[Rfam]
RNA: Lysine riboswitch aptamer
RNA sequence: AACAAAAGUAGAGGUGCGUUGCAUAAAAGUCAUGUUGAAUUGGGUGAUGCCAAUAAUUCGACAUAAAAGGAUGCAAUGCCGAAAUAAAUGGGGUUAUCAGCUUCAUUUGUUGGGGCAGUUCUCGAAAGGGACUGCACUGUCAUAGUGUUUUUAUCAACUUGAUAAAAAGAAUGAUAUUCAUAUUAAAUGGAUAUUGCUGUGGAGUGCUACUAGUUAA
Numbered sequence: 001a002a003c004a005a006a007a008g009u010a011g012a013g014g015u016g017c018g019u020u021g022c023a024u025a026a027a028a029g030u031c032a033u034g035u036u037g038a039a040u041u042g043g044g045u046g047a048u049g050c051c052a053a054u055a056a057u058u059c060g061a062c063a064u065a066a067a068a069g070g071a072u073g074c075a076a077u078g079c080c081g082a083a084a085u086a087a088a089u090g091g092g093g094u095u096a097u098c099a100g101c102u103u104c105a106u107u108u109g110u111u112g113g114g115g116c117a118g119u120u121c122u123c124g125a126a127a128g129g130g131a132c133u134g135c136a137c138u139g140u141c142a143u144a145g146u147g148u149u150u151u152u153a154u155c156a157a158c159u160u161g162a163u164a165a166a167a168a169g170a171a172u173g174a175u176a177u178u179c180a181u182a183u184u185a186a187a188u189g190g191a192u193a194u195u196g197c198u199g200u201g202g203a204g205u206g207c208u209a210c211u212a213g214u215u216a217a
Stems, first nucleotide, its partner, number of pairs: 007211005016079009032064008083111012112138002115135008140202007